[Rfam]
Purine riboswitch aptamer: a 102-nucleotide sequence from Planococcus massiliensis. Taxonomically the source falls in Planococcus (Bacteria, Bacillati, Caryophanales, Caryophanaceae). Pairs were carried over by alignment from the consensus structure, which is taken from published work. From the family's description: Riboswitches are metabolite binding domains within certain messenger RNAs that serve as precision sensors for their corresponding targets.
RNA sequence: AAAGUAAUUAAAUAACGUUGUCGUAUAAUGUCGGGGAUAUGGCCCGAAAGUUUCUACCGAGUUACCGUAAAUGACUCGACUACGAUUUUGUCCUUUCUGAAC
Numbered sequence: 001a002a003a004g005u006a007a008u009u010a011a012a013u014a015a016c017g018u019u020g021u022c023g024u025a026u027a028a029u030g031u032c033g034g035g036g037a038u039a040u041g042g043c044c045c046g047a048a049a050g051u052u053u054c055u056a057c058c059g060a061g062u063u064a065c066c067g068u069a070a071a072u073g074a075c076u077c078g079a080c081u082a083c084g085a086u087u088u089u090g091u092c093c094u095u096u097c098u099g100a101a102c
Stems, first nucleotide, its partner, number of pairs: 020086006029049001031047005058078007